[Rfam]
RNA sequence: CGUAUCAUUGUGCCUCGCAUCCCGCGGGGCGAUAAGUCCUGAAGAAAGGGAUGAUAUGAC
Numbered sequence: 001c002g003u004a005u006c007a008u009u010g011u012g013c014c015u016c017g018c019a020u021c022c023c024g025c026g027g028g029g030c031g032a033u034a035a036g037u038c039c040u041g042a043a044g045a046a047a048g049g050g051a052u053g054a055u056a057u058g059a060c
Stems, first nucleotide, its partner, number of pairs: 001058009011031008038049002
Record summary: Shown here is a 60-nucleotide sequence from Bifidobacterium longum, a member of the family "SAM-VI (S-adenosyl methionine) riboswitch aptamer". Pairs were carried over by alignment from the consensus structure, which was predicted with RNAfold. NCBI's taxonomy places the organism under Bacteria, Bacillati, Bifidobacteriaceae, Bifidobacterium, Bifidobacterium longum.